The family of this 109-nucleotide sequence from Actinacidiphila oryziradicis is "SAM (S-adenosyl methionine) riboswitch aptamer". NCBI's taxonomy places the organism under Bacteria, Bacillati, Actinomycetota, Kitasatosporales, Actinacidiphila. Pairs were carried over by alignment from the consensus structure, which is taken from published work.
[Rfam]
RNA sequence: GGUCACGAGCUCCAGCGUCAAGCCCCGGCUUGCUGGACGGCAUCCCGCCCGCUGCGGGUGCCCCGGGUGACGACCAGCCCCGCACGAAGUGUGCAGGGAACCGCGGAUC
Numbered sequence: 001g002g003u004c005a006c007g008a009g010c011u012c013c014a015g016c017g018u019c020a021a022g023c024c025c026c027g028g029c030u031u032g033c034u035g036g037a038c039g040g041c042a043u044c045c046c047g048c049c050c051g052c053u054g055c056g057g058g059u060g061c062c063c064c065g066g067g068u069g070a071c072g073a074c075c076a077g078c079c080c081c082g083c084a085c086g087a088a089g090u091g092u093g094c095a096g097g098g099a100a101c102c103g104c105g106g107a108u109c
Stems, first nucleotide, its partner, number of pairs: 001075004009038001011037006021030002039062003044058003048054001078098003082094005

About the family: SAM-IV is a mRNA element that regulates gene expression via direct sensing of S-adenosylmethionine (SAM or AdoMet).